[Rfam]
RNA sequence: GGAGAAGCAAAGUGAUGAGCAUUAUUGGCUAGAGCCCCAAAGAGGCACAUGUGUGUAUGUGUGUGUAUGCAUGUGUGUCUGUAUCCUUGUCUGUGCAUGCACAUGUAUGUCUGGGAGUACGAAUGUGUCUGACUGAUUAUAGGGAACUAGUUUAUGUGCCUUCUGUUGGACGAUGACAGUCAAACUGAUAAGAUCUGAUUGCUUC
Numbered sequence: 001g002g003a004g005a006a007g008c009a010a011a012g013u014g015a016u017g018a019g020c021a022u023u024a025u026u027g028g029c030u031a032g033a034g035c036c037c038c039a040a041a042g043a044g045g046c047a048c049a050u051g052u053g054u055g056u057a058u059g060u061g062u063g064u065g066u067a068u069g070c071a072u073g074u075g076u077g078u079c080u081g082u083a084u085c086c087u088u089g090u091c092u093g094u095g096c097a098u099g100c101a102c103a104u105g106u107a108u109g110u111c112u113g114g115g116a117g118u119a120c121g122a123a124u125g126u127g128u129c130u131g132a133c134u135g136a137u138u139a140u141a142g143g144g145a146a147c148u149a150g151u152u153u154a155u156g157u158g159c160c161u162u163c164u165g166u167u168g169g170a171c172g173a174u175g176a177c178a179g180u181c182a183a184a185c186u187g188a189u190a191a192g193a194u195c196u197g198a199u200u201g202c203u204u205c
Stems, first nucleotide, its partner, number of pairs: 004205007014195003026182005036115004041110001043108001045106003050101007061091001065086001067084005117130001119128002133150003137146002153175003158171001160169002
A member of the RNA family "Small nucleolar RNA ZL1" from Vulpes vulpes, 205 nucleotides long. The organism belongs to Vulpes, within Eukaryota. Gene Ontology terms of the family: nucleolus and RNA processing. A reference for the family is Kishore et al. (2013), "Insights into snoRNA biogenesis and processing from PAR-CLIP of snoRNA core proteins and small RNA sequencing", Genome Biol. From the family's description: Host gene TRRAP. Predicted target U2@U47.